Rfam assigns this 124-nucleotide RNA sequence from Streptomyces sp. SID5785 to the family "gntR-DTE RNA". It is annotated as a small RNA. Pairs were carried over by alignment from the consensus structure, which is taken from published work. It scores 76 bits against the family's covariance model.
RNA sequence: CGGGUGAUGUCGUCGGCGGCAAUGCCAAGCCCAUCAGUUCGGAGUACACCCCAUUUGAUCUCGGGGUUCACCGUCUGGUGUGGGCCGCCCUGCUGACGUCAGAGCAGUGAUGCUGACGUGUUUC
Number, nucleotide and partner (000 for none) at each position: 001c000002g000003g000004g000005u000006g000007a000008u000009g000010u000011c000012g000013u000014c000015g089016g088017c087018g086019g085020c084021a000022a000023u000024g000025c000026c000027a000028a000029g000030c082031c000032c080033a079034u078035c077036a076037g075038u000039u000040c073041g072042g071043a000044g000045u000046a000047c000048a067049c066050c065051c064052c000053a000054u000055u000056u000057g000058a000059u000060c000061u000062c000063g000064g051065g050066g049067u048068u000069c000070a000071c042072c041073g040074u000075c037076u036077g035078g034079u033080g032081u000082g030083g000084g020085c019086c018087g017088c016089c015090c000091u000092g000093c000094u000095g000096a000097c000098g000099u000100c000101a000102g000103a000104g000105c000106a000107g000108u000109g000110a000111u000112g000113c000114u000115g000116a000117c000118g000119u000120g000121u000122u000123u000124c000